[Rfam]
RNA sequence: UAAUUCUUUGAAAAAUAUAGAUACCCUAGUGCAGAGAGUUGUCAGCUUGCUAGGAUGCCUUUAAGUAAGUCUAUUAUAAUAAGGAUGCUUAAUAUGGUAGGACUUUUUAUUAGUAGUAAUAUUAAUAAAGAAGAUACAAGAGUAUCAACAAAGAGAGGUAGUGUAUCUUAGUAAUCAACAGUAAAGUCAUAACAGAGUGGGGAGAAUAAUAGACGGUGUGAGAAGCACAAGAACCCUAAAGCCUAAUAUUGUGGUGAUAUUGGAAACUUGGGGAAUACCAAACAAUCUCCUAUGCCUUGAUGUAUUAGAAAUAGUACUAUAACACUCAAAAAUGGAUAAGUAGCUCAAUGGCAGUUUCUUAAUAAAAUAAAGCUCAAAAAUUAUUCAUUAAGAAUAAAAAGAUAAUUCUAAUUUAAUUUUUGAUUUAAAACAUAUUUUUUUCUGAAUGAUGAGUGAACAUUACAGGUAGUAAAUCCUGUCAUAGGUUUGGUUUUUGCAAAUACAAAAACUAUGGUAAGAAGCUUAAGAGUCGCUAUCUUAAGUUCAGACUUAUCAUCUAUGUAACUUAAUAACUACAGAUUACUAAGAAUAAGGCGAAGGUCUAUCUGAUAUUUUUCAAAGAU
Numbered sequence: 001u002a003a004u005u006c007u008u009u010g011a012a013a014a015a016u017a018u019a020g021a022u023a024c025c026c027u028a029g030u031g032c033a034g035a036g037a038g039u040u041g042u043c044a045g046c047u048u049g050c051u052a053g054g055a056u057g058c059c060u061u062u063a064a065g066u067a068a069g070u071c072u073a074u075u076a077u078a079a080u081a082a083g084g085a086u087g088c089u090u091a092a093u094a095u096g097g098u099a100g101g102a103c104u105u106u107u108u109a110u111u112a113g114u115a116g117u118a119a120u121a122u123u124a125a126u127a128a129a130g131a132a133g134a135u136a137c138a139a140g141a142g143u144a145u146c147a148a149c150a151a152a153g154a155g156a157g158g159u160a161g162u163g164u165a166u167c168u169u170a171g172u173a174a175u176c177a178a179c180a181g182u183a184a185a186g187u188c189a190u191a192a193c194a195g196a197g198u199g200g201g202g203a204g205a206a207u208a209a210u211a212g213a214c215g216g217u218g219u220g221a222g223a224a225g226c227a228c229a230a231g232a233a234c235c236c237u238a239a240a241g242c243c244u245a246a247u248a249u250u251g252u253g254g255u256g257a258u259a260u261u262g263g264a265a266a267c268u269u270g271g272g273g274a275a276u277a278c279c280a281a282a283c284a285a286u287c288u289c290c291u292a293u294g295c296c297u298u299g300a301u302g303u304a305u306u307a308g309a310a311a312u313a314g315u316a317c318u319a320u321a322a323c324a325c326u327c328a329a330a331a332a333u334g335g336a337u338a339a340g341u342a343g344c345u346c347a348a349u350g351g352c353a354g355u356u357u358c359u360u361a362a363u364a365a366a367a368u369a370a371a372g373c374u375c376a377a378a379a380a381u382u383a384u385u386c387a388u389u390a391a392g393a394a395u396a397a398a399a400a401g402a403u404a405a406u407u408c409u410a411a412u413u414u415a416a417u418u419u420u421u422g423a424u425u426u427a428a429a430a431c432a433u434a435u436u437u438u439u440u441u442c443u444g445a446a447u448g449a450u451g452a453g454u455g456a457a458c459a460u461u462a463c464a465g466g467u468a469g470u471a472a473a474u475c476c477u478g479u480c481a482u483a484g485g486u487u488u489g490g491u492u493u494u495u496g497c498a499a500a501u502a503c504a505a506a507a508a509c510u511a512u513g514g515u516a517a518g519a520a521g522c523u524u525a526a527g528a529g530u531c532g533c534u535a536u537c538u539u540a541a542g543u544u545c546a547g548a549c550u551u552a553u554c555a556u557c558u559a560u561g562u563a564a565c566u567u568a569a570u571a572a573c574u575a576c577a578g579a580u581u582a583c584u585a586a587g588a589a590u591a592a593g594g595c596g597a598a599g600g601u602c603u604a605u606c607u608g609a610u611a612u613u614u615u616u617c618a619a620a621g622a623u
Stems, first nucleotide, its partner, number of pairs: 007620012020607001025054005036048005056160006068104003071100003075096004080091004105130011133146005166604001168587002171584001174581001181574001186566001189333002195327005200291006216228004234273006243263007252280004293353004302317005337459001343454005441548004465477002481560003484509001491507004514554001517551002521544001523541006592603004
ROOL RNA: a 623-nucleotide RNA. From the family's description: Firmicutes, Fusobacteria (1 example), Tenericutes (1 example). The family's RNA type in Rfam is small RNA.